The record is a 108-nucleotide RNA from Flammeovirga pectinis, which matches "SAM riboswitch aptamer (S box leader)" in Rfam. The source organism's lineage runs through Bacteria, Pseudomonadati, Cytophagia, Flammeovirgaceae and Flammeovirga. The match comes from Rfam's covariance-model search (77 bits). About the family: The SAM riboswitch is found upstream of a number of genes which code for proteins involved in methionine or cysteine biosynthesis in Gram-positive bacteria. A reference for the family is Rodionov et al. (2004), "Comparative genomics of the methionine metabolism in Gram-positive bacteria: a variety of regulatory systems", Nucleic Acids Res.

RNA sequence: UGCUUAUCAAGAAUGACAGAGAGAACGGGCUCGUAGAUGUCAUGGCAACCGUUGUUCCCAACGAAAGGUGCCAAAUCCCGCUUCGGAAGUGUCCGAGAAAGAUGAGCU
Number, nucleotide and partner (000 for none) at each position: 001u000002g107003c106004u105005u104006a103007u102008c101009a000010a000011g000012a000013a043014u042015g041016a040017c039018a000019g000020a000021g032022a031023g030024a000025a000026c080027g079028g078029g077030c023031u022032c021033g000034u000035a000036g000037a000038u000039g017040u016041c015042a014043u013044g072045g071046c070047a069048a000049c068050c067051g000052u064053u063054g062055u000056u000057c000058c000059c000060a000061a000062c054063g053064a052065a000066a000067g050068g049069u047070g046071c045072c044073a000074a000075a000076u100077c029078c028079c027080g026081c097082u096083u095084c000085g093086g092087a000088a000089g000090u000091g000092u086093c085094c000095g083096a082097g081098a000099a000100a076101g008102a007103u006104g005105a004106g003107c002108u000